Notes
Small nucleolar RNA SNORA15: a 139-nucleotide RNA from Xenopus laevis. A search with the family's covariance model found it, with a score of 72 bits. A reference for the family is Huttenhofer et al. (2001), "RNomics: an experimental approach that identifies 201 candidates for novel, small, non-messenger RNAs in mouse", EMBO J. Rfam's curators write: ACA15 is a member of the H/ACA class of snoRNA that guide the sites of modification of uridines to pseudouridines. The family's RNA type in Rfam is H/ACA-box small nucleolar RNA. The source organism's lineage runs through Eukaryota, Metazoa, Gnathostomata, Xenopodinae and Xenopus.
RNA sequence: GCAUGGAUGAAUUCUGCAUUAGCUUUUGCAGUAGCCAUUGCAGUCAGACACCAUGCAAAAUUAAAUUUCUUUUGUACCUUUUUUUCCUGAUGCAACCAGGUUUUACUGGGUGUCAUUAGAAUUACAACUGAAUACAAUU
Numbered sequence: 001g002c003a004u005g006g007a008u009g010a011a012u013u014c015u016g017c018a019u020u021a022g023c024u025u026u027u028g029c030a031g032u033a034g035c036c037a038u039u040g041c042a043g044u045c046a047g048a049c050a051c052c053a054u055g056c057a058a059a060a061u062u063a064a065a066u067u068u069c070u071u072u073u074g075u076a077c078c079u080u081u082u083u084u085u086c087c088u089g090a091u092g093c094a095a096c097c098a099g100g101u102u103u104u105a106c107u108g109g110g111u112g113u114c115a116u117u118a119g120a121a122u123u124a125c126a127a128c129u130g131a132a133u134a135c136a137a138u139u
Stems, first nucleotide, its partner, number of pairs: 001056006014043005070131001072127005085121001087119006093112002096109002